[Rfam]
U4 spliceosomal RNA: a 144-nucleotide sequence from Nomascus leucogenys. It scores 79 bits against the family's covariance model. NCBI's taxonomy places the organism under Eukaryota, Bilateria, Dipnotetrapodomorpha, Tetrapoda, Nomascus. It is annotated as a spliceosomal small nuclear RNA. Rfam's curators write: U4 small nuclear RNA (U4 snRNA) is a component of the major U2-dependent spliceosome.

RNA sequence: AGCUUUGAUCAGUGGUGGCACUGUAGCAGCCAGUAAGGUUUAUCUGAGGCACCAUUAUUGCUAAUUGAAAACUUUGCUCAGUACCCCACCGUGAAGACUUGCCAUAGAGUCAGCAUUGGCAAUUUUUGACAAUUUCUAUGGAGA
Numbered sequence: 001a002g003c004u005u006u007g008a009u010c011a012g013u014g015g016u017g018g019c020a021c022u023g024u025a026g027c028a029g030c031c032a033g034u035a036a037g038g039u040u041u042a043u044c045u046g047a048g049g050c051a052c053c054a055u056u057a058u059u060g061c062u063a064a065u066u067g068a069a070a071a072c073u074u075u076g077c078u079c080a081g082u083a084c085c086c087c088a089c090c091g092u093g094a095a096g097a098c099u100u101g102c103c104a105u106a107g108a109g110u111c112a113g114c115a116u117u118g119g120c121a122a123u124u125u126u127u128g129a130c131a132a133u134u135u136c137u138a139u140g141g142a143g144a
Stems, first nucleotide, its partner, number of pairs: 023055002026052001029050003037045002089119002091116003096111005133144004